[Rfam]
RNA sequence: GUAUACGAGAGUAGUUCAUGCUCGUAUACAGAAUUGGAUAUUCUAAAAUUUGUUAAUUGGACUAGGGUCUCCUCCUGGCGACGGCCGAACCGGGUUAGCCAUACCCGUAGUAGGACUAGCAUAUGGGAGGACUAGCUUUCGUGGUGAGGUUCCUGAGUGGUCUAAGUCCUGAGUACAGGAUAGUCGUCAGUAGUUCGACACAAACGGAGUUUUAGUCUCGAGAUGCUACGUGGACGAGGGCAUGCCCAAGACUCACUUUAAUCCUGGCGGGGGUCGCCAGGGUGAAAACGCCCAAUGGCGUUGGAACUACAGCCUGAUAGGGUGCUGCAGAGGCCCACGCAACAGCUAGUAUAAAAAAUCUCUGCUGUACAUGGCAC
Dot-bracket structure: (((((((((...........))))))))).........................................((((((.((...((((....(((((.......))))).....)).)).))....))))))((((((((.(((((((.((((((.(((((((((..((((((....))))))..(((((.(((((((((.((.((.......)).)).))))...)))))...)))))(((....))).)))).)))))..((((((((((...))))))))))...((((((....)))))))))))).))((((....)))).[.[[[[[[..))))).)..))))))).........]]]]]].]..........